[Rfam]
Nucleotides: 184
Base pairs, nucleotide, nucleotide: 002182003181004180005179006178007177008176009175010174011173012171013170014169015168017167018166019165030156032154033153035151036150037149038147039146056131057130058129060127061126062125063124064123065122070120071119072118073117074116075115076114082106083105087102088101089100090099
Number, partner (000 for none) and nucleotide at each position: 001000u002182u003181a004180a005179u006178c007177c008176u009175g010174a011173u012171a013170u014169g015168u016000u017167u018166g019165u020000u021000c022000a023000u024000u025000u026000a027000a028000c029000g030156u031000a032154u033153u034000u035151u036150g037149a038147c039146c040000g041000a042000a043000c044000a045000a046000c047000a048000u049000u050000u051000u052000a053000a054000a055000a056131g057130g058129g059000a060127g061126c062125u063124u064123u065122a066000c067000g068000u069000u070120u071119u072118u073117a074116u075115a076114u077000u078000g079000c080000a081000u082106g083105g084000a085000u086000g087102c088101c089100g090099u091000u092000a093000c094000a095000a096000u097000a098000c099090a100089c101088g102087g103000a104000a105083c106082c107000a108000u109000a110000a111000u112000a113000a114076a115075u116074a117073u118072a119071a120070a121000a122065u123064a124063g125062g126061g127060c128000a129058c130057c131056c132000a133000c134000c135000u136000g137000c138000u139000a140000a141000a142000u143000g144000c145000g146039g147038g148000a149037u150036c151035a152000a153033a154032a155000c156030a157000u158000a159000a160000a161000a162000u163000g164000g165019a166018c167017g168015g169014c170013a171012u172000g173011a174010u175009c176008g177007g178006g179005a180004u181003u182002a183000a184000g
A member of the RNA family "6S / SsrS RNA" from Bacilli bacterium VT-13-104, 184 nucleotides long. About the family: E. coli 6S RNA was the first non coding RNA to be sequenced, but its function was unknown until recently. Lineage of the source: Bacteria > Bacillati > Bacillota > Bacilli. It is annotated as a non-coding RNA gene. The base pairs follow the family's consensus structure, which is taken from published work. It scores 99 bits against the family's covariance model.